Shown here is a 124-nucleotide RNA sequence from Caenorhabditis briggsae, a member of the family "Caenorhabditis snoRNA ceN86".
The sequence is in the family's curated seed alignment.
Its family is annotated with nucleolus and RNA processing in the Gene Ontology.
The base pairs follow the family's consensus structure.
A reference for the family is Jia et al. (2007), "Systematic identification of non-coding RNA 2,2,7-trimethylguanosine cap structures in Caenorhabditis elegans", BMC Mol Biol.
RNA sequence: UGGCAGCGUUGUUUGAGAGUUUACUCCCGUGAGGAAGCAUCUAUUUAUCGCUGCGAGAUAAAAUAUGUCCUUUAUUCCCGCUCCUGAAUUUUGUUUCUUGCGCGAUGAUGCGGCCAUGACAAUU
Numbered sequence: 001u002g003g004c005a006g007c008g009u010u011g012u013u014u015g016a017g018a019g020u021u022u023a024c025u026c027c028c029g030u031g032a033g034g035a036a037g038c039a040u041c042u043a044u045u046u047a048u049c050g051c052u053g054c055g056a057g058a059u060a061a062a063a064u065a066u067g068u069c070c071u072u073u074a075u076u077c078c079c080g081c082u083c084c085u086g087a088a089u090u091u092u093g094u095u096u097c098u099u100g101c102g103c104g105a106u107g108a109u110g111c112g113g114c115c116a117u118g119a120c121a122a123u124u
Stems, first nucleotide, its partner, number of pairs: 003054003015044001017042001021036002024033003064118004069113002073110004079104003083100001086097003